[Rfam]
Nucleotides: 153
Stems, first nucleotide, its partner, number of pairs: 001115002006050002010046009023035002052110004057106002063100006119150008128141005
Number, partner (000 for none) and nucleotide at each position: 001115g002114c003000a004000g005000u006050g007049u008000u009000g010046c011045c012044g013043c014042g015041c016040u017039g018038a019000c020000g021000c022000g023035c024034c025000c026000c027000g028000u029000g030000g031000a032000a033000a034024g035023g036000g037000a038018u039017c040016a041015g042014c043013g044012u045011g046010g047000u048000g049007a050006u051000g052110g053109u054108g055107g056000g057106c058105a059000a060000u061000c062000u063100c064099c065098g066097c067096c068095c069000c070000u071000u072000c073000g074000g075000g076000c077000c078000c079000a080000g081000c082000c083000g084000g085000g086000c087000c088000c089000g090000c091000c092000c093000c094000a095068g096067g097066g098065c099064g100063g101000u102000a103000c104000g105058u106057g107055c108054c109053g110052c111000u112000a113000c114002g115001c116000g117000u118000u119150c120149g121148g122147c123146g124145u125144c126143c127000u128141g129140g130139a131138g132137u133000a134000g135000c136000c137132g138131c139130u140129c141128c142000u143126g144125g145124g146123c147122g148121c149120c150119g151000u152000c153000g